[Rfam]
RNA: Lysine riboswitch aptamer
RNA sequence: CCAAGAAAUAGAGGCGCGGGCGAUGACAACCCUUGUGGAGGACCUAACUCCGAUGAAGCAAGGCUUAAGCAUCCCCGCCGAAAUACCAACCGCGAUUAGGCGCGAUUGGCGUUGGGCCAAGGGUGAAUAACUCUUGGACUGUCGCAGCCCUGCUGCGGAGCGCUAUGAUUCUG
Numbered sequence: 001c002c003a004a005g006a007a008a009u010a011g012a013g014g015c016g017c018g019g020g021c022g023a024u025g026a027c028a029a030c031c032c033u034u035g036u037g038g039a040g041g042a043c044c045u046a047a048c049u050c051c052g053a054u055g056a057a058g059c060a061a062g063g064c065u066u067a068a069g070c071a072u073c074c075c076c077g078c079c080g081a082a083a084u085a086c087c088a089a090c091c092g093c094g095a096u097u098a099g100g101c102g103c104g105a106u107u108g109g110c111g112u113u114g115g116g117c118c119a120a121g122g123g124u125g126a127a128u129a130a131c132u133c134u135u136g137g138a139c140u141g142u143c144g145c146a147g148c149c150c151u152g153c154u155g156c157g158g159a160g161c162g163c164u165a166u167g168a169u170u171c172u173g
Stems, first nucleotide, its partner, number of pairs: 008166004016078005022073004031063006082113003086109004091104003114140002117137008142158007